[Rfam]
RNA sequence: CCGUGGGCUGACGCCCACGGCAAGGUGCUGUCGUCACUUCGUGACU
Numbered sequence: 001c002c003g004u005g006g007g008c009u010g011a012c013g014c015c016c017a018c019g020g021c022a023a024g025g026u027g028c029u030g031u032c033g034u035c036a037c038u039u040c041g042u043g044a045c046u
Stems, first nucleotide, its partner, number of pairs: 001020008033045005
Dot-bracket structure: ((((((((....))))))))............(((((...))))).
RNA: Acido-Lenti-1 RNA